A member of the RNA family "M-box riboswitch aptamer (ykoK leader)" from Halorhodospira halophila, 182 nucleotides long. On this family, see Barrick et al., Proc Natl Acad Sci U S A 2004: "New RNA motifs suggest an expanded scope for riboswitches in bacterial genetic control". M-box riboswitch, also know as ykoK leader is described as a metaloregulatory RNA that sense divalent metals and function as a genetic control element of genes related to divalent metal transport in bacteria. It was first reported upstream of the B.subtilis ykoK gene and genes with related functions in other bacteria. Lineage of the source: Bacteria > Pseudomonadati > Gammaproteobacteria > Ectothiorhodospiraceae > Halorhodospira halophila.
RNA sequence: AGCGAGUCCCGUUAGGUGAGGCUCCUGUGCCGACAAGGUGUGCUGCCCAGAAAUGUCGAGAGACGCCAAUGGGUUGAACAGGCCCUGCCGAACGAAGGCUUGGUCUAAUGCACACCGCGGCCCGCGCCCUGCGCGCGGCCUUUGAGUCGCACAGUGCCGAAGCUCUACGAAGGGGACUUGGU
Number, nucleotide and partner (000 for none) at each position: 001a000002g000003c000004g000005a178006g177007u176008c175009c174010c173011g168012u167013u096014a000015g164016g163017u162018g000019a000020g158021g157022c156023u000024c000025c154026u153027g152028u151029g150030c149031c000032g147033a000034c000035a000036a000037g000038g000039u114040g113041u112042g111043c110044u000045g074046c073047c072048c071049a070050g000051a000052a000053a000054u065055g064056u063057c062058g000059a000060g000061a000062g057063a056064c055065g054066c000067c000068a000069a000070u049071g048072g047073g046074u045075u000076g000077a000078a000079c000080a000081g105082g104083c103084c102085c000086u000087g099088c098089c097090g000091a000092a000093c000094g000095a000096a013097g089098g088099c087100u000101u000102g084103g083104u082105c081106u000107a000108a000109u000110g043111c042112a041113c040114a039115c000116c137117g136118c135119g000120g000121c000122c000123c000124g000125c000126g000127c000128c000129c000130u000131g000132c000133g000134c000135g118136c117137g116138g000139c000140c000141u000142u000143u000144g000145a000146g000147u032148c000149g030150c029151a028152c027153a026154g025155u000156g022157c021158c020159g000160a000161a000162g017163c016164u015165c000166u000167a012168c011169g000170a000171a000172g000173g010174g009175g008176a007177c006178u005179u000180g000181g000182u000